[Rfam]
RNA sequence: UUUGUGGGGGAUGUUGGCUGGCUCGACGCAACCACUCCUUACUUUCUUCUUCUUCGUCUUCCCCAUUUGAAUGAAAAGAAGAAGAAGAAGAAGAAGAAAUUAAAUGAAUGUUGUGAAGGCUUCGGACCAGGCUUCAUUCCUCUCAAA
Numbered sequence: 001u002u003u004g005u006g007g008g009g010g011a012u013g014u015u016g017g018c019u020g021g022c023u024c025g026a027c028g029c030a031a032c033c034a035c036u037c038c039u040u041a042c043u044u045u046c047u048u049c050u051u052c053u054u055c056g057u058c059u060u061c062c063c064c065a066u067u068u069g070a071a072u073g074a075a076a077a078g079a080a081g082a083a084g085a086a087g088a089a090g091a092a093g094a095a096g097a098a099a100u101u102a103a104a105u106g107a108a109u110g111u112u113g114u115g116a117a118g119g120c121u122u123c124g125g126a127c128c129a130g131g132c133u134u135c136a137u138u139c140c141u142c143u144c145a146a147a
Base pairs, nucleotide, nucleotide: 001147002146003145004144006142007141008140009139010138011137012136013135016132018130019129020128021127024124025123026122
The record is a 147-nucleotide RNA from Genlisea aurea, which matches "mir-166 microRNA precursor family" in Rfam.
It scores 68 bits against the family's covariance model.
For this family Rfam cites "MicroRNAs in plants" (Reinhart et al., Genes Dev, 2002).
Rfam's curators write: This family represents the plant microRNA (miRNA) precursor mir-166.
Taxonomically the source falls in Genlisea (Eukaryota, Streptophyta, Spermatophyta, eudicotyledons).